Rfam assigns this 100-nucleotide RNA sequence from Cetobacterium somerae to the family "Glycine riboswitch aptamer".
Pairs were carried over by alignment from the consensus structure.
It scores 57 bits against the family's covariance model.
The source organism's lineage runs through Bacteria, Fusobacteriota, Fusobacteriales, Cetobacterium and Cetobacterium somerae.
RNA sequence: GGACGAGCCUCUGGAGAGACUCUAUGAGCACCGAAGGAGCAAACCCAAAUAUAAUUUGUAUUUGGACUAAACUCUCAGGUAAAAGGACAGAGGAAUUAUG
Numbered sequence: 001g002g003a004c005g006a007g008c009c010u011c012u013g014g015a016g017a018g019a020c021u022c023u024a025u026g027a028g029c030a031c032c033g034a035a036g037g038a039g040c041a042a043a044c045c046c047a048a049a050u051a052u053a054a055u056u057u058g059u060a061u062u063u064g065g066a067c068u069a070a071a072c073u074c075u076c077a078g079g080u081a082a083a084a085g086g087a088c089a090g091a092g093g094a095a096u097u098a099u100g
Base pairs, nucleotide, nucleotide: 008093009092010091011090012089013088020028021027022026030080031079032078033076034075037074038073039072